This 72-nucleotide sequence from Candidatus Palibaumannia cicadellinicola belongs to the Rfam family "tRNA". The base pairs follow the family's consensus structure, which is taken from published work.
[Rfam]
RNA sequence: GCGGGUAUUGUAUAAUGGUUAUUACAUUAGCCUUCCAAGCUGACGAUGUGGGUUCGAUUCCCACUACCCGCU
Numbered sequence: 001g002c003g004g005g006u007a008u009u010g011u012a013u014a015a016u017g018g019u020u021a022u023u024a025c026a027u028u029a030g031c032c033u034u035c036c037a038a039g040c041u042g043a044c045g046a047u048g049u050g051g052g053u054u055c056g057a058u059u060c061c062c063a064c065u066a067c068c069c070g071c072u
Stems, first nucleotide, its partner, number of pairs: 001071007010025003027043005048064005
The match comes from Rfam's covariance-model search (66 bits).